RNA: MIR4371 microRNA precursor family
RNA sequence: CUGUUAAGUGAUGACGUGAUAGGCAUAGUGUUACGUUAUCACAUCUUGUCACAUACAUCUCAUUGUCACAUCAUCACCUUCAAUGACAUGGUACUGACGUGUCGGUGAUUGGUCAUGAUGACGUGACACUCUGUUUGUCAUGUCAAUACUUAACGGAA
Numbered sequence: 001c002u003g004u005u006a007a008g009u010g011a012u013g014a015c016g017u018g019a020u021a022g023g024c025a026u027a028g029u030g031u032u033a034c035g036u037u038a039u040c041a042c043a044u045c046u047u048g049u050c051a052c053a054u055a056c057a058u059c060u061c062a063u064u065g066u067c068a069c070a071u072c073a074u075c076a077c078c079u080u081c082a083a084u085g086a087c088a089u090g091g092u093a094c095u096g097a098c099g100u101g102u103c104g105g106u107g108a109u110u111g112g113u114c115a116u117g118a119u120g121a122c123g124u125g126a127c128a129c130u131c132u133g134u135u136u137g138u139c140a141u142g143u144c145a146a147u148a149c150u151u152a153a154c155g156g157a158a
Base pairs, nucleotide, nucleotide: 001156002155003154004153005152006151007150008149009148010147012145013144014143015142016141017140018139019138020137021136022135023134024133025132027130028129029128030127031126032125033124034123035122036121037120038119039118040117041116045112046111048109049108050107051106052105055102056101057100058099071086072085073084074083